[Rfam]
RNA sequence: CUCUUAUCUUGAGCGGUGGAGGGACUGGCCCUUUGAAACCGCGGCAACCUUCAGACAUACCGAUGUCUGAAAGGUGCCAAUUCCUGCAAAGUGCUUGCUUUGACAGAUGAGAG
Numbered sequence: 001c002u003c004u005u006a007u008c009u010u011g012a013g014c015g016g017u018g019g020a021g022g023g024a025c026u027g028g029c030c031c032u033u034u035g036a037a038a039c040c041g042c043g044g045c046a047a048c049c050u051u052c053a054g055a056c057a058u059a060c061c062g063a064u065g066u067c068u069g070a071a072a073g074g075u076g077c078c079a080a081u082u083c084c085u086g087c088a089a090a091g092u093g094c095u096u097g098c099u100u101u102g103a104c105a106g107a108u109g110a111g112a113g
Stems, first nucleotide, its partner, number of pairs: 001113008013042005021031003025086001027084002043078004048074002050071007082105001087102006
This 113-nucleotide RNA sequence from Virgibacillus indicus belongs to the Rfam family "SAM riboswitch aptamer (S box leader)". The source organism's lineage runs through Bacteria, Bacillati, Bacillota, Bacilli and Virgibacillus.